[Rfam]
RNA sequence: AACGUGCUCCGGGGUCGGUGAGAAUCCGAACCGGCGGUGACAGUCCGCGAACCCGCAUCCGUGCGGGCCGACCCGGUGGAACUCCGGGACCGACGGUGAUGCGACGCGAGUCGCGAGUCCGGAUGGAAGGCAGCACGCG
Numbered sequence: 001a002a003c004g005u006g007c008u009c010c011g012g013g014g015u016c017g018g019u020g021a022g023a024a025u026c027c028g029a030a031c032c033g034g035c036g037g038u039g040a041c042a043g044u045c046c047g048c049g050a051a052c053c054c055g056c057a058u059c060c061g062u063g064c065g066g067g068c069c070g071a072c073c074c075g076g077u078g079g080a081a082c083u084c085c086g087g088g089a090c091c092g093a094c095g096g097u098g099a100u101g102c103g104a105c106g107c108g109a110g111u112c113g114c115g116a117g118u119c120c121g122g123a124u125g126g127a128a129g130g131c132a133g134c135a136c137g138c139g
Stems, first nucleotide, its partner, number of pairs: 003137006009130002016028003032092002034048004043090002052067002072088005094121003